[Rfam]
RNA: Small nucleolar RNA snoR31/Z110/Z27
RNA sequence: AGUAUCAUGGGAUGAAACCUUGAAACAAUCUUAGGACACUUUCUGACAUAGUGCUUAUUUUUACCUGUGAAUGAGAAGGCAUUUAUAUUCUGAUGAUACG
Numbered sequence: 001a002g003u004a005u006c007a008u009g010g011g012a013u014g015a016a017a018c019c020u021u022g023a024a025a026c027a028a029u030c031u032u033a034g035g036a037c038a039c040u041u042u043c044u045g046a047c048a049u050a051g052u053g054c055u056u057a058u059u060u061u062u063a064c065c066u067g068u069g070a071a072u073g074a075g076a077a078g079g080c081a082u083u084u085a086u087a088u089u090c091u092g093a094u095g096a097u098a099c100g
Base pairs, nucleotide, nucleotide: 002099003098004097005096006095007094047053048052